[Rfam]
Shown here is a 74-nucleotide RNA from Novosphingobium arvoryzae, a member of the family "tRNA". The family's RNA type in Rfam is transfer RNA. The family's consensus secondary structure is taken from published work.
RNA sequence: GCGACCGUAGCUCAGCUGGUUAGAGCGCCGGUUUGUGGUACCGGAGGUCGUGGGUUCGAACCCCAUCGGUCGCC
Numbered sequence: 001g002c003g004a005c006c007g008u009a010g011c012u013c014a015g016c017u018g019g020u021u022a023g024a025g026c027g028c029c030g031g032u033u034u035g036u037g038g039u040a041c042c043g044g045a046g047g048u049c050g051u052g053g054g055u056u057c058g059a060a061c062c063c064c065a066u067c068g069g070u071c072g073c074c
Stems, first nucleotide, its partner, number of pairs: 001073007010026004028044005050066005